Shown here is a 218-nucleotide RNA from Lentibacillus kapialis, a member of the family "T-box leader".
Nucleotides: 218
Base pairs, nucleotide, nucleotide: 007109008108015104016103017102018101025092026091027090028089029088030087037078038077039076048075049074050073051072052071053070054069055068112126113125114124115123117121128143129142130141131140132139160176161175162174163173164172165171166170181215182214183213184212192211193210194209195208196207
Number, partner (000 for none) and nucleotide at each position: 001000g002000a003000u004000a005000u006000a007109a008108c009000g010000a011000a012000g013000a014000a015104g016103a017102g018101g019000u020000c021000a022000g023000u024000a025092g026091c027090a028089a029088a030087a031000a032000u033000g034000c035000u036000a037078u038077c039076c040000g041000u042000a043000a044000g045000a046000g047000a048075g049074u050073g051072g052071a053070a054069u055068u056000c057000a058000c059000c060000g061000g062000c063000u064000g065000a066000g067000a068055g069054a070053u071052u072051c073050c074049a075048u076039g077038g078037g079000a080000a081000c082000a083000c084000a085000g086000c087030u088029u089028u090027u091026g092025u093000g094000a095000a096000a097000c098000c099000u100000g101018c102017c103016u104015u105000g106000g107000a108008g109007u110000u111000g112126u113125c114124a115123g116000a117121u118000c119000a120000a121117a122000c123115c124114u125113g126112a127000c128143c129142g130141c131140a132139g133000a134000c135000c136000c137000c138000a139132c140131u141130g142129c143128g144000u145000u146000a147000u148000g149000a150000a151000a152000a153000c154000a155000g156000a157000g158000u159000g160176g161175g162174u163173a164172u165171g166170u167000u168000c169000a170166g171165c172164a173163u174162g175161c176160c177000a178000a179000a180000c181215a182214a183213g184212g185000u186000g187000g188000u189000a190000c191000c192211a193210c194209g195208g196207a197000a198000a199000c200000a201000c202000c203000c204000c205000a206000a207196u208195c209194c210193g211192u212184c213183c214182u215181u216000u217000u218000c

Rfam's curators write: Uncharged tRNA acts as the effector for transcription antitermination of genes in the T-box leader family. T-boxes are found upstream of many aminoacyl-tRNA synthetase genes and some amino acid biosynthetic genes usually in Gram-positive bacteria. The anticodon of a specific tRNA base pairs to a specifier sequence within the T-box motif, and the NCCA acceptor tail of the tRNA base pairs to a conserved bulge in the T-box antiterminator hairpin. By type it is a cis-regulatory leader. For this family Rfam cites "Interaction between the acceptor end of tRNA and the T box stimulates antitermination in the Bacillus subtilis tyrS gene: a new role for the discriminator base" (Grundy et al., J Bacteriol, 1994).